[Rfam]
RNA sequence: AGGGUGUGGUGUAACACACUCUAAAUCUGCGUGUUAAUAGCUUUUCUCAUUGGCCUGGGAGAGCGGUUAGUGAAUC
Numbered sequence: 001a002g003g004g005u006g007u008g009g010u011g012u013a014a015c016a017c018a019c020u021c022u023a024a025a026u027c028u029g030c031g032u033g034u035u036a037a038u039a040g041c042u043u044u045u046c047u048c049a050u051u052g053g054c055c056u057g058g059g060a061g062a063g064c065g066g067u068u069a070g071u072g073a074a075u076c
Base pairs, nucleotide, nucleotide: 001022002021003020004019005018006017007016008015034070035069036068037067038066040064041063042062044061045060046059047058048057049056